This 121-nucleotide RNA sequence from Nasonia vitripennis belongs to the Rfam family "U5 spliceosomal RNA". It is annotated as a spliceosomal small nuclear RNA. From the family's description: U5 RNA is a component of both types of known spliceosome. The precise function of this molecule is unknown, though it is known that the 5' loop is required for splice site selection and p220 binding, and that both the 3' stem-loop and the Sm site are important for Sm protein binding and cap methylation.
Nucleotides: 121
Stems, first nucleotide, its partner, number of pairs: 003081004009070011030056008101121001103120006
Number, partner (000 for none) and nucleotide at each position: 001000u002000c003081a004080c005079u006078c007000u008000g009070g010069u011068u012067u013066c014065c015064c016063u017062u018061c019060a020000u021000u022000a023000c024000a025000c026000g027000a028000a029000u030056a031055a032054a033053u034052c035051u036050u037049u038000c039000g040000c041000c042000u043000u044000u045000u046000a047000c048000u049037a050036a051035a052034g053033a054032u055031u056030u057000c058000c059000g060019u061018g062017g063016a064015g065014g066013g067012a068011a069010a070009c071000a072000c073000u074000u075000g076000a077000u078006g079005a080004g081003u082000c083000u084000a085000u086000a087000g088000a089000c090000u091000u092000a093000u094000u095000u096000u097000u098000u099000g100000u101121g102000u103120g104119c105118c106117c107116a108115a109000c110000g111000a112000a113000a114000g115108u116107u117106g118105g119104g120103c121101c